[Rfam]
RNA sequence: GAGGAAAAGAUCGAGGUGGGUUGGGGCGGGCUCUGGGGAUUUGGUCUCACAGCCCGGAUCCCAGCCCACUUACCUUGGUUACUCUCCUUCCU
Numbered sequence: 001g002a003g004g005a006a007a008a009g010a011u012c013g014a015g016g017u018g019g020g021u022u023g024g025g026g027c028g029g030g031c032u033c034u035g036g037g038g039a040u041u042u043g044g045u046c047u048c049a050c051a052g053c054c055c056g057g058a059u060c061c062c063a064g065c066c067c068a069c070u071u072a073c074c075u076u077g078g079u080u081a082c083u084c085u086c087c088u089u090c091c092u
Stems, first nucleotide, its partner, number of pairs: 002092005008085003011078007018067009027056006034049005
mir-3940 microRNA precursor family: a 92-nucleotide RNA from Homo sapiens. Gene Ontology terms of the family: RISC complex and miRNA-mediated post-transcriptional gene silencing. The base pairs follow the family's consensus structure, which was predicted with RNAalifold.